Rfam assigns this 129-nucleotide sequence from Paracoccus denitrificans to the family "FMN riboswitch aptamer (RFN element)". The base pairs follow the family's consensus structure, which is taken from published work. Its family is annotated with FMN binding in the Gene Ontology. The source organism's lineage runs through Bacteria, Pseudomonadota, Alphaproteobacteria, Rhodobacterales and Paracoccus denitrificans.

RNA sequence: GCGUGUUCUCGGGGCGGGGUGCAAUUCCCCACCGGCGGUUACAGCCCGCGAGCGCCUGCAAUCCGCAGGGUCAGCAGAUCCGGUGAAACUCCGGGGCCGACGGUAUAGUCCGGAUGAAAGAGAAUGGAC
Numbered sequence: 001g002c003g004u005g006u007u008c009u010c011g012g013g014g015c016g017g018g019g020u021g022c023a024a025u026u027c028c029c030c031a032c033c034g035g036c037g038g039u040u041a042c043a044g045c046c047c048g049c050g051a052g053c054g055c056c057u058g059c060a061a062u063c064c065g066c067a068g069g070g071u072c073a074g075c076a077g078a079u080c081c082g083g084u085g086a087a088a089c090u091c092c093g094g095g096g097c098c099g100a101c102g103g104u105a106u107a108g109u110c111c112g113g114a115u116g117a118a119a120g121a122g123a124a125u126g127g128a129c
Stems, first nucleotide, its partner, number of pairs: 004126007017029003031109002033099002035049004044097002052075002079095005101112003